RNA sequence: AUACUUACCUGGACGGGGUUAAUGGGCGGUCAAAUAGACUCAUUGCCUAGGGCAGUAACCUCCAUUGCACUUGGGAGGGGUGUUGCUCUAAGGUCUCUCCAAGCGAGAGAGCCUACGUCAUAAUUUGUGGCAGAGGGGAUUUGCGUUCGCGCAGUCCCUAC
Numbered sequence: 001a002u003a004c005u006u007a008c009c010u011g012g013a014c015g016g017g018g019u020u021a022a023u024g025g026g027c028g029g030u031c032a033a034a035u036a037g038a039c040u041c042a043u044u045g046c047c048u049a050g051g052g053c054a055g056u057a058a059c060c061u062c063c064a065u066u067g068c069a070c071u072u073g074g075g076a077g078g079g080g081u082g083u084u085g086c087u088c089u090a091a092g093g094u095c096u097c098u099c100c101a102a103g104c105g106a107g108a109g110a111g112c113c114u115a116c117g118u119c120a121u122a123a124u125u126u127g128u129g130g131c132a133g134a135g136g137g138g139a140u141u142u143g144c145g146u147u148c149g150c151g152c153a154g155u156c157c158c159u160a161c
Stems, first nucleotide, its partner, number of pairs: 012119004016048004021043001023042004049089004055083003059079003062075002091114003094110003098106002135159004142153004
RNA: U1 spliceosomal RNA